[Rfam]
RNA sequence: AGGGUGCGCCUUUCAGGCAUCCUCUCCUAAAAACUUUCAUAGGGUCGUCCCUUCUGGGGCGGCCCUUUUUUUGCGCGUGU
Numbered sequence: 001a002g003g004g005u006g007c008g009c010c011u012u013u014c015a016g017g018c019a020u021c022c023u024c025u026c027c028u029a030a031a032a033a034c035u036u037u038c039a040u041a042g043g044g045u046c047g048u049c050c051c052u053u054c055u056g057g058g059g060c061g062g063c064c065c066u067u068u069u070u071u072u073g074c075g076c077g078u079g080u
Base pairs, nucleotide, nucleotide: 008018009017010016011015042065043064044063045062046061047060048059049058050057